Description: Rfam assigns this 131-nucleotide RNA from Alligator sinensis to the family "Small nucleolar RNA SNORD94". For this family Rfam cites "Identification of 13 novel human modification guide RNAs" (Vitali et al., Nucleic Acids Res, 2003).
RNA sequence: GCAGUAAUGAUGAUUGGCGCAGGGGUACGGACCUCAGCUGAAUCAUGGGAGCUGAGUGUAAAUAUUUCUCUCCUACAUGUGGUAGAAAAUGGAGAAUGUUUACAUGAGACUUGUGCCUAAGUCUGAGCUGC
Numbered sequence: 001g002c003a004g005u006a007a008u009g010a011u012g013a014u015u016g017g018c019g020c021a022g023g024g025g026u027a028c029g030g031a032c033c034u035c036a037g038c039u040g041a042a043u044c045a046u047g048g049g050a051g052c053u054g055a056g057u058g059u060a061a062a063u064a065u066u067u068c069u070c071u072c073c074u075a076c077a078u079g080u081g082g083u084a085g086a087a088a089a090u091g092g093a094g095a096a097u098g099u100u101u102a103c104a105u106g107a108g109a110c111u112u113g114u115g116c117c118u119a120a121g122u123c124u125g126a127g128c129u130g131c
Base pairs, nucleotide, nucleotide: 001131002130003129004128005127